[Rfam]
RNA: Small nucleolar RNA SNORD16
RNA sequence: UGCCGUGAUGUCGUAAUUUGCGUCUUACGCCGUGCUCAGUGACAGUCGCCUGCUGUCAGGGUGCUGGCACGGGUGGCUGACGAGCAGUUAGCGCUGAGCA
Numbered sequence: 001u002g003c004c005g006u007g008a009u010g011u012c013g014u015a016a017u018u019u020g021c022g023u024c025u026u027a028c029g030c031c032g033u034g035c036u037c038a039g040u041g042a043c044a045g046u047c048g049c050c051u052g053c054u055g056u057c058a059g060g061g062u063g064c065u066g067g068c069a070c071g072g073g074u075g076g077c078u079g080a081c082g083a084g085c086a087g088u089u090a091g092c093g094c095u096g097a098g099c100a
Stems, first nucleotide, its partner, number of pairs: 001100003021082004030072005039064002041057005